[Rfam]
RNA sequence: AUUGCCCCUUGAAUAACUAGUUGCUUUAAUUUUUCUGUUUGCAUCUAGCUCAGACAGGGGCAUCAAUUCAAUUGAAUCCUUUUUGAGGGAAGGGAGCUUAAUGGUGCUUCUUUCUUAGGUGGAUUCAUAUAAGU
Numbered sequence: 001a002u003u004g005c006c007c008c009u010u011g012a013a014u015a016a017c018u019a020g021u022u023g024c025u026u027u028a029a030u031u032u033u034u035c036u037g038u039u040u041g042c043a044u045c046u047a048g049c050u051c052a053g054a055c056a057g058g059g060g061c062a063u064c065a066a067u068u069c070a071a072u073u074g075a076a077u078c079c080u081u082u083u084u085g086a087g088g089g090a091a092g093g094g095a096g097c098u099u100a101a102u103g104g105u106g107c108u109u110c111u112u113u114c115u116u117a118g119g120u121g122g123a124u125u126c127a128u129a130u131a132a133g134u
Stems, first nucleotide, its partner, number of pairs: 003062005009057001015050001017048004022043001024041001073127006080119003085114003089111001091109003095105001

A member of the RNA family "Small nucleolar RNA snoR138" from Rhynchospora breviuscula, 134 nucleotides long. A reference for the family is Chen and Wu (2009), "Mining small RNA sequencing data: a new approach to identify small nucleolar RNAs in Arabidopsis", Nucleic Acids Res. The match comes from Rfam's covariance-model search (47 bits). The base pairs follow the family's consensus structure, which was predicted with mfold. The family's RNA type in Rfam is H/ACA-box small nucleolar RNA.